A member of the RNA family "Small nucleolar RNA snoR74" from Oryza punctata, 131 nucleotides long. The source organism's lineage runs through Eukaryota, Viridiplantae, commelinids, Oryzeae and Oryza. A search with the family's covariance model found it, with a score of 105 bits. For this family Rfam cites "Experimental RNomics: identification of 140 candidates for small non-messenger RNAs in the plant Arabidopsis thaliana" (Marker et al., Curr Biol, 2002).
[Rfam]
RNA sequence: AAAAAAGCAGGAUGUUGUUCUCUAUGUAAGCAGUAUCCUCGUAAACUUUAGGAAUAUCAUUGUCAUUGUUAUUGGUUGAACCGGUGGACUUAAACUUGAUGUCUAUUGGUUCAGUAAACGGUGACAUAUUU
Dot-bracket structure: ....(((...((.((((.............)))).))........))).............(((((((((......(((((((.......................)))))))...)))))))))......